[Rfam]
RNA sequence: UGGGCAGCUGACCCUGUAGCUGCUAAGGGGCGUAGUGAUGUUUCCACCCCUAAGCUGUUACAUCGUCUGUUGUUCACC
Numbered sequence: 001u002g003g004g005c006a007g008c009u010g011a012c013c014c015u016g017u018a019g020c021u022g023c024u025a026a027g028g029g030g031c032g033u034a035g036u037g038a039u040g041u042u043u044c045c046a047c048c049c050c051u052a053a054g055c056u057g058u059u060a061c062a063u064c065g066u067c068u069g070u071u072g073u074u075c076a077c078c
Stems, first nucleotide, its partner, number of pairs: 001076008010067003015062006022055003026051005032045001034043002
RNA: mir-2756 microRNA precursor family
Organism: Heliconius melpomene